[Rfam]
RNA sequence: AGGCAGCCCCCUAGCAAAAAGCAAUUGAUAAGGGAGGUGUUAUUCUACUCGUAGAUGAAUUCUUUGGCUCUUCAGACCUGCUGAGAUUUUGUUAAUGACGCAGUUCUAGUAACGCUAAAGUACAUU
Numbered sequence: 001a002g003g004c005a006g007c008c009c010c011c012u013a014g015c016a017a018a019a020a021g022c023a024a025u026u027g028a029u030a031a032g033g034g035a036g037g038u039g040u041u042a043u044u045c046u047a048c049u050c051g052u053a054g055a056u057g058a059a060u061u062c063u064u065u066g067g068c069u070c071u072u073c074a075g076a077c078c079u080g081c082u083g084a085g086a087u088u089u090u091g092u093u094a095a096u097g098a099c100g101c102a103g104u105u106c107u108a109g110u111a112a113c114g115c116u117a118a119a120g121u122a123c124a125u126u
Stems, first nucleotide, its partner, number of pairs: 002041004007037002009034004013029001015027002062120003067115002069112001074107003078103001080101002085093003
RNA: Small nucleolar RNA snoR77
Organism: Spinacia oleracea